Rfam assigns this 67-nucleotide RNA from Mytilus coruscus to the family "Selenocysteine insertion sequence 1".

RNA sequence: GACUGUUUAUGACGUCUUUACACUAAAUCCAUUGGAUGUUGGAUGUGUAUGGAUUGAUAAUUCAGUC
Numbered sequence: 001g002a003c004u005g006u007u008u009a010u011g012a013c014g015u016c017u018u019u020a021c022a023c024u025a026a027a028u029c030c031a032u033u034g035g036a037u038g039u040u041g042g043a044u045g046u047g048u049a050u051g052g053a054u055u056g057a058u059a060a061u062u063c064a065g066u067c
Stems, first nucleotide, its partner, number of pairs: 001067005014054004019049005029042003
The incorporation of selenocysteine into a protein sequence is directed by an in-frame UGA codon (usually a stop codon) within the coding region of the mRNA. Selenoprotein mRNAs contain a conserved secondary structure in the 3' UTR that is required for the distinction of UGA stop from UGA selenocysteine. The selenocysteine insertion sequence (SECIS) is around 60 nt in length and adopts a hairpin structure which is sufficiently well-defined and conserved to act as a computational screen for selenoprotein genes. It is annotated as a cis-regulatory element.